This 80-nucleotide sequence from Capitella teleta belongs to the Rfam family "mir-981 microRNA precursor family". Rfam links the family to the GO terms miRNA-mediated post-transcriptional gene silencing and RISC complex. The family's consensus secondary structure was predicted with RNAalifold.
[Rfam]
RNA sequence: GUCUUUCAAUUCGGGUUUCGCGGUAUUCGAACACGUACCAAUAGCAGUUGUUCGUUGUCGUCGAAACCUGCUUUGAAAGA
Numbered sequence: 001g002u003c004u005u006u007c008a009a010u011u012c013g014g015g016u017u018u019c020g021c022g023g024u025a026u027u028c029g030a031a032c033a034c035g036u037a038c039c040a041a042u043a044g045c046a047g048u049u050g051u052u053c054g055u056u057g058u059c060g061u062c063g064a065a066a067c068c069u070g071c072u073u074u075g076a077a078a079g080a
Stems, first nucleotide, its partner, number of pairs: 002079001004077003012070009029053005